The record is a 79-nucleotide RNA from Brassicogethes aeneus, which matches "mir-315 microRNA precursor family" in Rfam.
A search with the family's covariance model found it, with a score of 66 bits.
Rfam links the family to the GO terms miRNA-mediated post-transcriptional gene silencing and RISC complex.
RNA sequence: ACCUCGUUUUAUUUUGAUUGUUGCUCAGAAAGCCUUGUACUUGAAUGGCUUUCGGGUCAUAAUCAAAUUCAAAAUAGGU
Dot-bracket structure: ((((..(.....((((((.((.((((.(((((((............))))))))))).)).)))))).....)..))))

Notes: The family's consensus secondary structure was predicted with RNAalifold. The source organism's lineage runs through Eukaryota, Ecdysozoa, Neoptera, Meligethinae and Brassicogethes. The literature on the family includes a 2003 paper in Dev Cell by Aravin et al., "The small RNA profile during Drosophila melanogaster development".